[Rfam]
RNA: Small Cajal body specific RNA 6
RNA sequence: GGUCUGUGAUGAAUAGUAAAAGGUCUGAUUAUCCCAAGACUUGCAGUUCCAUGCCCUCUUCUCCCAGCAGUUUCUCCCCAGCCAUGGCACAGCAAUGGUGUGGCUGGCAGAGUGUUUGCUGACAGUGUGAGAUGUGCUCAGGUCAUGUUCACCUGGAGCAUUGGAGACAUGACUGAGAUCAGCAUCCGACAGUCCUGCUUGAAGGAGUUUGGGGUCUUGGAUUGGUCUAACUGGACAUGUGAUGUGACUUUUCUGCUGAGACC
Numbered sequence: 001g002g003u004c005u006g007u008g009a010u011g012a013a014u015a016g017u018a019a020a021a022g023g024u025c026u027g028a029u030u031a032u033c034c035c036a037a038g039a040c041u042u043g044c045a046g047u048u049c050c051a052u053g054c055c056c057u058c059u060u061c062u063c064c065c066a067g068c069a070g071u072u073u074c075u076c077c078c079c080a081g082c083c084a085u086g087g088c089a090c091a092g093c094a095a096u097g098g099u100g101u102g103g104c105u106g107g108c109a110g111a112g113u114g115u116u117u118g119c120u121g122a123c124a125g126u127g128u129g130a131g132a133u134g135u136g137c138u139c140a141g142g143u144c145a146u147g148u149u150c151a152c153c154u155g156g157a158g159c160a161u162u163g164g165a166g167a168c169a170u171g172a173c174u175g176a177g178a179u180c181a182g183c184a185u186c187c188g189a190c191a192g193u194c195c196u197g198c199u200u201g202a203a204g205g206a207g208u209u210u211g212g213g214g215u216c217u218u219g220g221a222u223u224g225g226u227c228u229a230a231c232u233g234g235a236c237a238u239g240u241g242a243u244g245u246g247a248c249u250u251u252u253c254u255g256c257u258g259a260g261a262c263c
Base pairs, nucleotide, nucleotide: 001263002262003261004260035244036243039240040239044219045218046217049214050213061207062206063205064204065121066120067119068118069117070116078107079106080105081104082103083102084101085100086099129187131186132185133184134183135182144171145170146169147168148167149166152163